This 102-nucleotide sequence from Metabacillus litoralis belongs to the Rfam family "Purine riboswitch aptamer". It scores 90 bits against the family's covariance model. Lineage of the source: Bacteria > Bacilli > Caryophanales > Bacillaceae > Metabacillus.
[Rfam]
RNA sequence: AAUAAAAUUAUAUAAAUCCUUCAUAUAUCCUCGAAAAUAUGGUUCGAGAGUCUCUACCGGGUAACCGAAAAUAACCUGACUAUGAAGGCAGAAUAAGUUCGC
Numbered sequence: 001a002a003u004a005a006a007a008u009u010a011u012a013u014a015a016a017u018c019c020u021u022c023a024u025a026u027a028u029c030c031u032c033g034a035a036a037a038u039a040u041g042g043u044u045c046g047a048g049a050g051u052c053u054c055u056a057c058c059g060g061g062u063a064a065c066c067g068a069a070a071a072u073a074a075c076c077u078g079a080c081u082a083u084g085a086a087g088g089c090a091g092a093a094u095a096a097g098u099u100c101g102c
Stems, first nucleotide, its partner, number of pairs: 018088008030048006058078005064072001